[Rfam]
RNA sequence: CACCGCGCGGUCUCUAAUUCGCUUGGUGCAGGUCGGGAACUGGUUCUGCUGCAACUUCCGCGCUAGCUAGAUGGCGUGUAAUGGAUAGUUGCCUUGCCCACGGCGAAUUGGAUCCCGCCUUGCAUCAACUGAAUCGGAGACCGCGGUGAAG
Numbered sequence: 001c002a003c004c005g006c007g008c009g010g011u012c013u014c015u016a017a018u019u020c021g022c023u024u025g026g027u028g029c030a031g032g033u034c035g036g037g038a039a040c041u042g043g044u045u046c047u048g049c050u051g052c053a054a055c056u057u058c059c060g061c062g063c064u065a066g067c068u069a070g071a072u073g074g075c076g077u078g079u080a081a082u083g084g085a086u087a088g089u090u091g092c093c094u095u096g097c098c099c100a101c102g103g104c105g106a107a108u109u110g111g112a113u114c115c116c117g118c119c120u121u122g123c124a125u126c127a128a129c130u131g132a133a134u135c136g137g138a139g140a141c142c143g144c145g146g147u148g149a150a151g
Stems, first nucleotide, its partner, number of pairs: 013138002017134004023128010034117005040111007
MIR168 microRNA precursor family: a 151-nucleotide RNA sequence from Senna tora. On this family, see Reinhart et al., Genes Dev 2002: "MicroRNAs in plants". Lineage of the source: Eukaryota > Viridiplantae > fabids > Fabales > Senna. The match comes from Rfam's covariance-model search (111 bits).